[Rfam]
RNA sequence: GUAAAAUUUAUCUAUAUAGAACACUCAUAUCGAUAAAAUGGUUUGAACUAUUU
Numbered sequence: 001g002u003a004a005a006a007u008u009u010a011u012c013u014a015u016a017u018a019g020a021a022c023a024c025u026c027a028u029a030u031c032g033a034u035a036a037a038a039u040g041g042u043u044u045g046a047a048c049u050a051u052u053u
Base pairs, nucleotide, nucleotide: 011033012032014030015029016028017027
Description: A member of the RNA family "Plastid-atpF group II-D1 intron" from Triticum aestivum, 53 nucleotides long. Plastid atpF is a non-coding RNA (ncRNA) recognised in plastids. On this family, see Richter et al., Plant Commun 2023: "Retrograde signaling in plants: A critical review focusing on the GUN pathway and beyond". The family has 49 seed sequences and 1,372 matches in Rfam 15.1.